Background
Rfam assigns this 65-nucleotide RNA sequence from Halopseudomonas pelagia to the family "narK RNA".
[Rfam]
RNA sequence: GGCACCUAUCUUGCUUAAUCUACCUUAGGCAACCAACGGCGGUUGCCCCAAGACAACGACGUCAU
Numbered sequence: 001g002g003c004a005c006c007u008a009u010c011u012u013g014c015u016u017a018a019u020c021u022a023c024c025u026u027a028g029g030c031a032a033c034c035a036a037c038g039g040c041g042g043u044u045g046c047c048c049c050a051a052g053a054c055a056a057c058g059a060c061g062u063c064a065u
Stems, first nucleotide, its partner, number of pairs: 028047007

It is one of the family's seed sequences. Pairs were carried over by alignment from the consensus structure, which is taken from published work.